[Rfam]
RNA: mraW RNA
Organism: Microbacterium marinum
RNA sequence: UUCUGACCCUCGGCUGUGACUCCCAGCCGCACGCCCUGACGCACUUCCCCGGUGUCAGGUCGGAGCGGAUGGGGAUCAGAGCCGAGGGAGGCCCCCUC
Numbered sequence: 001u002u003c004u005g006a007c008c009c010u011c012g013g014c015u016g017u018g019a020c021u022c023c024c025a026g027c028c029g030c031a032c033g034c035c036c037u038g039a040c041g042c043a044c045u046u047c048c049c050c051g052g053u054g055u056c057a058g059g060u061c062g063g064a065g066c067g068g069a070u071g072g073g074g075a076u077c078a079g080a081g082c083c084g085a086g087g088g089a090g091g092c093c094c095c096c097u098c
Stems, first nucleotide, its partner, number of pairs: 010085006018077002021074005027068004032062002035059008